[Rfam]
RNA sequence: AGACUGCGAUGAUGCGAAAGGUUGCUGAUGCACCGUCAUAUAGCCAUAUGCGGGGCCAAUCAGGUUAAUUUUCGCGGAGUAUGUCCAUCAAAUGGGCGA
Numbered sequence: 001a002g003a004c005u006g007c008g009a010u011g012a013u014g015c016g017a018a019a020g021g022u023u024g025c026u027g028a029u030g031c032a033c034c035g036u037c038a039u040a041u042a043g044c045c046a047u048a049u050g051c052g053g054g055g056c057c058a059a060u061c062a063g064g065u066u067a068a069u070u071u072u073c074g075c076g077g078a079g080u081a082u083g084u085c086c087a088u089c090a091a092a093u094g095g096g097c098g099a
Stems, first nucleotide, its partner, number of pairs: 014075003018072004025063005082098006
RNA: S10-Clostridia ribosomal protein leader